Record summary: HIV-1 stem-loop 4 packaging signal: a 20-nucleotide RNA sequence from Lentivirus humimdef1. The sequence is in the family's curated seed alignment. The family's consensus secondary structure is taken from published work. It is annotated as a cis-regulatory element. The organism belongs to Lentivirus humimdef1, within Viruses.
RNA sequence: UGGGUGCGAGAGCGUCUGUG
Numbered sequence: 001u002g003g004g005u006g007c008g009a010g011a012g013c014g015u016c017u018g019u020g
Stems, first nucleotide, its partner, number of pairs: 003016005